[Rfam]
A member of the RNA family "Bacillus-plasmid RNA" from Bacillus pseudomycoides, 67 nucleotides long. The family's RNA type in Rfam is small RNA. Rfam 15.1 lists 155 matches to the family in 128 species. Pairs were carried over by alignment from the consensus structure, which is taken from published work.
RNA sequence: AGUGUCAACGGUACCGGACUGCGCCCGAAAGGGACCAGGAGGAUAAGGAGUUGAUACAUCAUCUGUC
Numbered sequence: 001a002g003u004g005u006c007a008a009c010g011g012u013a014c015c016g017g018a019c020u021g022c023g024c025c026c027g028a029a030a031g032g033g034a035c036c037a038g039g040a041g042g043a044u045a046a047g048g049a050g051u052u053g054a055u056a057c058a059u060c061a062u063c064u065g066u067c
Base pairs, nucleotide, nucleotide: 002057003056004055005054006053007052008051009050